[Rfam]
RNA sequence: CAGCCCUAGCUGAAAAUUAGUCGAACUGGACUGGCUUAGUAGUUCCUUUUGAAUCGAAAAGUCGGUAGACAAAAAUAAG
Numbered sequence: 001c002a003g004c005c006c007u008a009g010c011u012g013a014a015a016a017u018u019a020g021u022c023g024a025a026c027u028g029g030a031c032u033g034g035c036u037u038a039g040u041a042g043u044u045c046c047u048u049u050u051g052a053a054u055c056g057a058a059a060a061g062u063c064g065g066u067a068g069a070c071a072a073a074a075a076u077a078a079g
Stems, first nucleotide, its partner, number of pairs: 001012004020070003030066007042055001044052001
The record is a 79-nucleotide sequence, which matches "RT-18 RNA" in Rfam. Rfam classes the family as a small RNA. Pairs were carried over by alignment from the consensus structure, which is taken from published work. Rfam's curators put it in the seed alignment.